A member of the RNA family "mir-4654 microRNA precursor family" from Homo sapiens, 76 nucleotides long. The sequence is in the family's curated seed alignment. The family's consensus secondary structure was predicted with RNAalifold. Its family is annotated with RISC complex and miRNA-mediated post-transcriptional gene silencing in the Gene Ontology. Rfam 15.1 lists 19 matches to the family in 19 species.
[Rfam]
RNA sequence: CUGGCUGGUUGUGGGAUCUGGAGGCAUCUGGGGUUGGAAUGUGACCCCAGUCUCCUUUUCCCUCAUCAUCUGCCAG
Numbered sequence: 001c002u003g004g005c006u007g008g009u010u011g012u013g014g015g016a017u018c019u020g021g022a023g024g025c026a027u028c029u030g031g032g033g034u035u036g037g038a039a040u041g042u043g044a045c046c047c048c049a050g051u052c053u054c055c056u057u058u059u060c061c062c063u064c065a066u067c068a069u070c071u072g073c074c075a076g
Stems, first nucleotide, its partner, number of pairs: 001076005007070003010065002013062004020055006029049008